The record is a 68-nucleotide sequence from Salmo salar, which matches "miR-430 microRNA precursor family" in Rfam. The family has 32 seed sequences and 24,817 matches in Rfam 15.1. A search with the family's covariance model found it, with a score of 52 bits. The family's consensus secondary structure was predicted with RNAalifold.
[Rfam]
RNA sequence: AUAGCAACCCUAACAAAAGCGUUGACCAAUUUUGUUUGCAGUAAGUGAUUUUUGUUGGGGUAGCUGUU
Number, nucleotide and partner (000 for none) at each position: 001a000002u000003a000004g064005c063006a000007a061008c060009c059010c058011u057012a000013a055014c054015a053016a052017a051018a049019g000020c047021g046022u045023u044024g000025a042026c041027c000028a000029a000030u000031u000032u000033u000034g000035u000036u000037u000038g000039c000040a000041g026042u025043a000044a023045g022046u021047g020048a000049u018050u000051u017052u016053u015054g014055u013056u000057g011058g010059g009060g008061u007062a000063g005064c004065u000066g000067u000068u000